[Rfam]
RNA sequence: GCUGUACAGUGAUGAUAACGUGGCUCCCUCUACUGAUAGUGGUGAGGAAAGCAGCCACCCGUCACCCAACACUUCUGAGUACAGC
Numbered sequence: 001g002c003u004g005u006a007c008a009g010u011g012a013u014g015a016u017a018a019c020g021u022g023g024c025u026c027c028c029u030c031u032a033c034u035g036a037u038a039g040u041g042g043u044g045a046g047g048a049a050a051g052c053a054g055c056c057a058c059c060c061g062u063c064a065c066c067c068a069a070c071a072c073u074u075c076u077g078a079g080u081a082c083a084g085c
Stems, first nucleotide, its partner, number of pairs: 001085006
Dot-bracket structure: ((((((.........................................................................))))))
RNA: Small nucleolar RNA SNORD100